Source information
This 203-nucleotide RNA sequence belongs to the Rfam family "IS605-orfB-I RNA". Rfam's curators put it in the seed alignment. The base pairs follow the family's consensus structure, which is taken from published work.
[Rfam]
RNA sequence: ACCUUAUACAAAUGUAUUAACUGCAAGACAAGUUAGCAUUUCCCUGUAAGGUGGUGUUAAGUAGAAGUUUUAACGAUAAGUGCUAUUGCGUAGCUUUUAAAGUUGAAAUAGUAUGAGUUAAAGUGGAGUAGGUUAACCGUAAGACCUUGAAUUGUAAAAUUCUAAAAUCAAUCUCAAAGUUAUUCCUUUUGAGUUACGGUAAG
Numbered sequence: 001a002c003c004u005u006a007u008a009c010a011a012a013u014g015u016a017u018u019a020a021c022u023g024c025a026a027g028a029c030a031a032g033u034u035a036g037c038a039u040u041u042c043c044c045u046g047u048a049a050g051g052u053g054g055u056g057u058u059a060a061g062u063a064g065a066a067g068u069u070u071u072a073a074c075g076a077u078a079a080g081u082g083c084u085a086u087u088g089c090g091u092a093g094c095u096u097u098u099a100a101a102g103u104u105g106a107a108a109u110a111g112u113a114u115g116a117g118u119u120a121a122a123g124u125g126g127a128g129u130a131g132g133u134u135a136a137c138c139g140u141a142a143g144a145c146c147u148u149g150a151a152u153u154g155u156a157a158a159a160u161u162c163u164a165a166a167a168u169c170a171a172u173c174u175c176a177a178a179g180u181u182a183u184u185c186c187u188u189u190u191g192a193g194u195u196a197c198g199g200u201a202a203g
Base pairs, nucleotide, nucleotide: 001052002051003050004049005048006047007046008045010041011040012039013038014037015036018035019034020033021032022031023029067124068123069122070121071120072119073118074117081113082112083111084110085109086108087107092104093103095101130147131146132145133144134143136200137199138198139197140196141195142168149162150161151160152159153158173193174192175191176190177189178188179187